A member of the RNA family "L31-Actinobacteria ribosomal protein leader", 51 nucleotides long. It is one of the family's seed sequences.
[Rfam]
RNA sequence: UCGGGUCCGGUUCCCGACCUUCGAGCCAUUCGAAGGGUCGAUCCGGCGCCC
Numbered sequence: 001u002c003g004g005g006u007c008c009g010g011u012u013c014c015c016g017a018c019c020u021u022c023g024a025g026c027c028a029u030u031c032g033a034a035g036g037g038u039c040g041a042u043c044c045g046g047c048g049c050c051c
Base pairs, nucleotide, nucleotide: 003051004050005049007046008045009044010043015040016039017038018037019036020034021033022032023031024030

Rfam classes the family as a cis-regulatory leader.